[Rfam]
RNA sequence: UCAGGUGGAGUUGUAGUCGCUGUGCUUUUUUUGCACAGAGGAAAGUCCGGACUCCAAGAGAAGAUGGUGGCAGGUAACUCCUGCCGGGGGUAACUCUAGGUUAGGGCCACAGAAAACUACCGCCCCGUAAAGGGGUAAGGGUGAAAAGGUGCGGUAAGAGCGCACCGUACUCGUGGUAACACGCAGUAGCAAGGUAACCACUACCAGGAGCAAGGCUAAGAAGGGCAUUAUGGCUUCUCUCAUUUGUUGCCCGGGUAAGCCGCAUGAGGCAUGCAGCGAUGCAUAUCCCAGAUGAAUGACUACAUAACACAGAAUCCGGCUUAUCUCCACCUGACAUC
Dot-bracket structure: ((((((((((.(((((((.((((((.......))))))....[[[.[[[[[((((....[[.[.((((((((((.....)))))(((((....)))).)((..(((((...........(((((((.....)))))..)).......((((((.......))))))(((((((((....)))).)))).)..)))..)))))))))))))...((((.....(((((.....(..(.].]])..)..))))).....))))......((.(((((....))))).))..........)))))))..........]]]]]]]]..))))))))))....